About this RNA: A member of the RNA family "manA RNA", 198 nucleotides long. manA RNA has been located in 5'UTR regions of genes of mannose or fructose metabolism. Has been proposed as a cis-regulatory element and as a riboswitch candidate for his complex secondary structure. Rfam's curators put it in the seed alignment. Rfam classes the family as a cis-regulatory element.
RNA sequence: UGUUGGGUUGACGAACCUGACAUGGGAGUGACUGAAUAAUCUUUCUGGCAUAUAGCUGGAUAAGGUGAUGAGACACAGGUGGUGCUGCUGCGAAAGCAGAAUCGUCUUACCAGACGGGUCUCAGGCAAGGACGUAAAAUUUACUACUGUAGUAAUGCCCGUUCUUUGUUGGUAAUACAGGAAUCCAACCUCCCACCCC
Numbered sequence: 001u002g003u004u005g006g007g008u009u010g011a012c013g014a015a016c017c018u019g020a021c022a023u024g025g026g027a028g029u030g031a032c033u034g035a036a037u038a039a040u041c042u043u044u045c046u047g048g049c050a051u052a053u054a055g056c057u058g059g060a061u062a063a064g065g066u067g068a069u070g071a072g073a074c075a076c077a078g079g080u081g082g083u084g085c086u087g088c089u090g091c092g093a094a095a096g097c098a099g100a101a102u103c104g105u106c107u108u109a110c111c112a113g114a115c116g117g118g119u120c121u122c123a124g125g126c127a128a129g130g131a132c133g134u135a136a137a138a139u140u141u142a143c144u145a146c147u148g149u150a151g152u153a154a155u156g157c158c159c160g161u162u163c164u165u166u167g168u169u170g171g172u173a174a175u176a177c178a179g180g181a182a183u184c185c186a187a188c189c190u191c192c193c194a195c196c197c198c
Base pairs, nucleotide, nucleotide: 001022002021003020004019005018006017007016008015009014024193025192026191027190028189031066032065044060045059046058047057048056049055069123070122071121072120073119074118076087077086078085080112081111082110083109088099089098090097091096102117103116104115105114106113127165128164129163130162131161132160133159140154141153142152143151146179147178148177149176167188168187169186170185171184